[Rfam]
RNA sequence: AAUCUGAGCAAGCUGCACAUUAUUUCUUACUAUGCAGCCCGGUCACGAUUGUGACAGCAGAGUAUACCUAUCCUAGGGUACAUCUGUGAGACAG
Numbered sequence: 001a002a003u004c005u006g007a008g009c010a011a012g013c014u015g016c017a018c019a020u021u022a023u024u025u026c027u028u029a030c031u032a033u034g035c036a037g038c039c040c041g042g043u044c045a046c047g048a049u050u051g052u053g054a055c056a057g058c059a060g061a062g063u064a065u066a067c068c069u070a071u072c073c074u075a076g077g078g079u080a081c082a083u084c085u086g087u088g089a090g091a092c093a094g
Base pairs, nucleotide, nucleotide: 004094005093006092012038013037014036015035016034017033019031042055043054044053045052046051057087058086059085060084061083062081063080064079065078
Background
This 94-nucleotide sequence from Amphibacillus xylanus belongs to the Rfam family "NiCo-AnGGAG riboswitch aptamer". Rfam's curators write: Nico riboswitches are selective metalloregulatory riboswitches that recognice Ni2+ and Co2+ metals. NiCo-AnGGAG is a variant of Nico riboswitch, with a change in position 87, from G to A. Taxonomically the source falls in Amphibacillus xylanus (Bacteria, Bacillati, Bacilli, Bacillaceae). Rfam's curators put it in the seed alignment.